[Rfam]
Shown here is a 60-nucleotide sequence from Drosophila parabipectinata, a member of the family "Nanos 3' UTR translation control element". Taxonomically the source falls in bipectinata species complex (Eukaryota, Eumetazoa, Eumetabola, Sophophora). Rfam's curators put it in the seed alignment. Its family is annotated with protein binding, negative regulation of translation and anterior/posterior axis specification, embryo in the Gene Ontology.
RNA sequence: GUCAAAGCUCUGGCAGCUUCUUAAGCGUUUAUAUAGUCAGAAAUAUAUAUGCGCGAUCAU
Numbered sequence: 001g002u003c004a005a006a007g008c009u010c011u012g013g014c015a016g017c018u019u020c021u022u023a024a025g026c027g028u029u030u031a032u033a034u035a036g037u038c039a040g041a042a043a044u045a046u047a048u049a050u051g052c053g054c055g056a057u058c059a060u
Base pairs, nucleotide, nucleotide: 001060002059004057005019006018007017008016009015025054026053027052028051030049031048032047033046034045035044